[Rfam]
RNA: SAM (S-adenosyl methionine) riboswitch aptamer
RNA sequence: GGUCAUGAGCGCCAGCGACCUCCCGUGCCGAACGGGCGGCAAAGCCCCGGCUCGCUGGCCGGCAACCCUCCACUCGCGGCGGGGUGCCCCGGGUGACGACCAGGCGGGCACCGCAGGGGUGCCGGCAAGCGCGGGGA
Numbered sequence: 001g002g003u004c005a006u007g008a009g010c011g012c013c014a015g016c017g018a019c020c021u022c023c024c025g026u027g028c029c030g031a032a033c034g035g036g037c038g039g040c041a042a043a044g045c046c047c048c049g050g051c052u053c054g055c056u057g058g059c060c061g062g063c064a065a066c067c068c069u070c071c072a073c074u075c076g077c078g079g080c081g082g083g084g085u086g087c088c089c090c091g092g093g094u095g096a097c098g099a100c101c102a103g104g105c106g107g108g109c110a111c112c113g114c115a116g117g118g119g120u121g122c123c124g125g126c127a128a129g130c131g132c133g134g135g136g137a
Base pairs, nucleotide, nucleotide: 001101002100003099004098009060011059012058013057014056015055016054017053018052061088062087063086066084067083068082070079071078104126105125107123108122109121110120111119112118